[Rfam]
RNA sequence: UUUUGUGGCUAGGACUCCGACCGUGAGUUGUGUGUGUGUUCACAUCACAGUCAGAGUUCUAGCUAUACGG
Numbered sequence: 001u002u003u004u005g006u007g008g009c010u011a012g013g014a015c016u017c018c019g020a021c022c023g024u025g026a027g028u029u030g031u032g033u034g035u036g037u038g039u040u041c042a043c044a045u046c047a048c049a050g051u052c053a054g055a056g057u058u059c060u061a062g063c064u065a066u067a068c069g070g
Base pairs, nucleotide, nucleotide: 004067005066006065009062010061011060012059013058014057015056016055017054021050023048024047025046026045030043031042032041